[Rfam]
RNA sequence: ACCCCCUGGCAAUGGGCAAAGAGACACCUGAUUGGUGGGGUUGCUCUUAUAUCAAUCAGGGGCAAAGCAGAUGUACAGUCCUUAGUUCAUUCUAAGUUGAUGCCUAUAUCAGUGGCCAGAGCUGUUUCAUGCCUGAGGUACAUAA
Dot-bracket structure: ..((((((....(((...(((.(((.((........)).)))...)))...)))..))))))....................((.(((..........(.(...(....((.(.......).))....).).).))).)).....
Source information:
The family of this 145-nucleotide RNA from Pipistrellus kuhlii is "Small nucleolar RNA SNORA48". It is annotated as an H/ACA-box small nucleolar RNA. Rfam describes the family as follows. The snoRNA ACA 48 has been identified to guide pseudouridylation of the residue U3797 in the 28S rRNA subunit. The family is grouped with related families in Rfam's "SNORA48 clan". Rfam 15.1 lists 2,109 matches to the family in 150 species. The base pairs follow the family's consensus structure, which was predicted with RNAalifold. Lineage of the source: Eukaryota > Bilateria > Deuterostomia > Yangochiroptera > Pipistrellus.